[Rfam]
RNA sequence: UCCGGUCCUCUAUUAUCGUUCCUUGCUUCCUCUGGCUGACCGGACCAACUGUGGAAGCUGAAUAAUCCGUAAGGAGCAACCAAUG
Numbered sequence: 001u002c003c004g005g006u007c008c009u010c011u012a013u014u015a016u017c018g019u020u021c022c023u024u025g026c027u028u029c030c031u032c033u034g035g036c037u038g039a040c041c042g043g044a045c046c047a048a049c050u051g052u053g054g055a056a057g058c059u060g061a062a063u064a065a066u067c068c069g070u071a072a073g074g075a076g077c078a079a080c081c082a083a084u085g
Base pairs, nucleotide, nucleotide: 018077019076020075021074022073023072024071025058026057027056028055029054030053033047034046035045
The family of this 85-nucleotide RNA from Vibrio aerogenes is "RpsF leader". From the family's description: Conserved and widely distributed to many bacterial species RNA structure. It precedes operon containing rpsF, which encodes ribosomal protein S6. The source organism's lineage runs through Bacteria, Pseudomonadati, Vibrionaceae, Vibrio and Vibrio aerogenes.